This 81-nucleotide RNA from Cnephaeus nilssonii belongs to the Rfam family "mir-574 microRNA precursor family". Its family is annotated with miRNA-mediated post-transcriptional gene silencing and RISC complex in the Gene Ontology. It scores 100 bits against the family's covariance model. The base pairs follow the family's consensus structure, which was predicted with RNAalifold.

[Rfam]
RNA sequence: AGACCUGAAGAGAGAGGCAGGGUCUGAUCUGCAGCCCCCAUAGCAGCUGUUGAUCAGCCGUUGCCUCUCUCUUUCUUUCCA
Numbered sequence: 001a002g003a004c005c006u007g008a009a010g011a012g013a014g015a016g017g018c019a020g021g022g023u024c025u026g027a028u029c030u031g032c033a034g035c036c037c038c039c040a041u042a043g044c045a046g047c048u049g050u051u052g053a054u055c056a057g058c059c060g061u062u063g064c065c066u067c068u069c070u071c072u073u074u075c076u077u078u079c080c081a
Base pairs, nucleotide, nucleotide: 008073009072010071011070012069013068014067015066016065017064018063019062020061022059024057025056026055027054028053029052032049033048034047035046